[Rfam]
RNA: PyrR binding site
Organism: Ammoniphilus sp. CFH 90114
Nucleotides: 155
Base pairs, nucleotide, nucleotide: 003038004037005036006035007034008033014031015030016029017028018027019026049074051072052071053070054069055068056067057066058065059064121151123149124148125147126146127145128144129143130142131141132140133139134138
Number, partner (000 for none) and nucleotide at each position: 001000a002000g003038a004037a005036c006035c007034u008033u009000u010000a011000a012000a013000a014031u015030c016029a017028g018027u019026c020000c021000u022000g023000u024000g025000a026019g027018g028017c029016u030015g031014a032000c033008a034007a035006g036005g037004u038003u039000g040000u041000c042000g043000g044000a045000u046000g047000c048000a049074u050000u051072u052071g053070u054069a055068g056067a057066c058065g059064g060000g061000u062000a063000c064059u065058c066057g067056u068055c069054u070053a071052c072051a073000u074049a075000a076000u077000a078000g079000a080000g081000g082000g083000u084000u085000g086000u087000u088000g089000u090000a091000c092000g093000c094000a095000a096000u097000u098000u099000u100000a101000c102000c103000c104000u105000u106000u107000a108000u109000u110000u111000c112000a113000u114000g115000c116000u117000a118000c119000a120000c121151g122000u123149a124148g125147g126146c127145u128144u129143c130142c131141u132140g133139u134138c135000a136000g137000u138134g139133a140132c141131a142130g143129g144128a145127a146126g147125c148124c149123u150000u151121u152000a153000u154000u155000u